[Rfam]
RNA sequence: AACGACCGGUCGGACACCUGCGUGCCAACGCGGGAUCCGGCCCACAAGUGGAGGCUCCGAUCUCCCACCUGGCCGCUCCCCGGAGCGGCGGGUCACCGGUCAGGCGGACGCCGCGCAAUGCGCGAUGGACCGCCCGAUGCGCCCCGCGGUCACCGCGGAGGUGCUCCGGUAGGUAUGUGGAGCCCCUCCUGUGAUCGGUCCGGGGCAUUUUUU
Numbered sequence: 001a002a003c004g005a006c007c008g009g010u011c012g013g014a015c016a017c018c019u020g021c022g023u024g025c026c027a028a029c030g031c032g033g034g035a036u037c038c039g040g041c042c043c044a045c046a047a048g049u050g051g052a053g054g055c056u057c058c059g060a061u062c063u064c065c066c067a068c069c070u071g072g073c074c075g076c077u078c079c080c081c082g083g084a085g086c087g088g089c090g091g092g093u094c095a096c097c098g099g100u101c102a103g104g105c106g107g108a109c110g111c112c113g114c115g116c117a118a119u120g121c122g123c124g125a126u127g128g129a130c131c132g133c134c135c136g137a138u139g140c141g142c143c144c145c146g147c148g149g150u151c152a153c154c155g156c157g158g159a160g161g162u163g164c165u166c167c168g169g170u171a172g173g174u175a176u177g178u179g180g181a182g183c184c185c186c187u188c189c190u191g192u193g194a195u196c197g198g199u200c201c202g203g204g205g206c207a208u209u210u211u212u213u
Stems, first nucleotide, its partner, number of pairs: 004101006012038002039094005045071002048068004052063002072089007103134005109127002112124003141206006147197003154193003157189005163183005
RNA: Streptomyces RNA 1601
Organism: Streptomyces aurantiacus